[Rfam]
RNA sequence: UAAAAAGAGGUUCAUAGCAGAUACCCUCUAUAAAAAACUAUGGAAUG
Numbered sequence: 001u002a003a004a005a006a007g008a009g010g011u012u013c014a015u016a017g018c019a020g021a022u023a024c025c026c027u028c029u030a031u032a033a034a035a036a037a038c039u040a041u042g043g044a045a046u047g
Stems, first nucleotide, its partner, number of pairs: 006029005015040002
RNA: PreQ1 (pre queuosine) riboswitch aptamer